[Rfam]
RNA sequence: UGGCGCCAAACGUGGGUCUUGAGAAGGGGCCAGUGAAGAUCACCUCAGUGUUUUUUGGUCAGCUGAUGAAUUUUGCGUGGGGACCUGCCACCUUGACUAGGGAUUCUGGUAUGUUUGCAGUAAGAUGCUGAAUAGCCAUGAAUUAUCUGUGGAAAGGUUGAAAAUGGCUUUAAAAGGUCAAGGGAUAAAGUUAAAAUACAUGAGUUGCUUGCAUUCUUUGAUUUUGAAAAAGAGAAGGAAAAUGAACGUAAGCUGUUU
Number, nucleotide and partner (000 for none) at each position: 001u000002g000003g000004c000005g000006c027007c026008a000009a000010a000011c000012g000013u000014g000015g000016g000017u000018c000019u000020u000021g000022a000023g000024a000025a000026g007027g006028g000029g000030c000031c000032a045033g043034u042035g000036a000037a000038g000039a000040u000041c000042a034043c033044c000045u032046c000047a000048g000049u000050g000051u000052u000053u000054u000055u000056u000057g000058g000059u000060c000061a000062g000063c000064u000065g000066a000067u000068g000069a000070a000071u103072u102073u101074u000075g097076c000077g091078u090079g089080g088081g000082g000083a000084c000085c000086u000087g000088c080089c079090a078091c077092c000093u000094u000095g000096a000097c075098u000099a000100g000101g073102g072103a071104u000105u000106c000107u000108g000109g128110u127111a126112u125113g000114u124115u123116u122117g121118c000119a000120g000121u117122a116123a115124g114125a112126u111127g110128c109129u000130g000131a000132a000133u172134a171135g168136c167137c166138a000139u000140g000141a000142a000143u000144u000145a000146u000147c000148u000149g000150u000151g000152g000153a000154a000155a000156g000157g000158u000159u000160g000161a000162a000163a000164a000165u000166g137167g136168c135169u000170u000171u134172a133173a000174a000175a000176g000177g000178u000179c220180a219181a218182g217183g216184g215185a214186u213187a000188a000189a206190g205191u204192u203193a000194a201195a000196a000197u000198a000199c000200a000201u194202g000203a192204g191205u190206u189207g000208c000209u000210u000211g000212c000213a186214u185215u184216c183217u182218u181219u180220g179221a000222u000223u000224u000225u000226g000227a000228a000229a000230a000231a000232g000233a258234g257235a256236a000237g000238g000239a000240a000241a000242a000243u000244g000245a000246a000247c000248g000249u000250a000251a000252g000253c000254u000255g000256u235257u234258u233
Description:
Rfam assigns this 258-nucleotide RNA sequence from Mus spicilegus to the family "Mason-Pfizer monkey virus packaging signal". The organism belongs to Mus, within Eukaryota. It is annotated as a cis-regulatory element. It scores 57 bits against the family's covariance model.